[Rfam]
RNA sequence: ACCUGGAAGGGAGGCAAGAUAUUGGCAUAGCUGUUGACUUUAAAAUCCGCUAUGCCAAUGUAUUGUCAUCUUUCCUGUCU
Numbered sequence: 001a002c003c004u005g006g007a008a009g010g011g012a013g014g015c016a017a018g019a020u021a022u023u024g025g026c027a028u029a030g031c032u033g034u035u036g037a038c039u040u041u042a043a044a045a046u047c048c049g050c051u052a053u054g055c056c057a058a059u060g061u062a063u064u065g066u067c068a069u070c071u072u073u074c075c076u077g078u079c080u
Stems, first nucleotide, its partner, number of pairs: 005075007013067005019061003023057009
Record summary:
This 80-nucleotide RNA sequence from Alectura lathami belongs to the Rfam family "mir-31 microRNA precursor family". A reference for the family is Chiang et al. (2010), "Mammalian microRNAs: experimental evaluation of novel and previously annotated genes", Genes Dev. The source organism's lineage runs through Eukaryota, Tetrapoda, Sauria, Neognathae and Alectura. The family's consensus secondary structure was predicted with RNAalifold. Rfam links the family to the GO terms gene silencing by miRNA and RISC complex. Its Rfam clan is "mir-31 microRNA precursor family".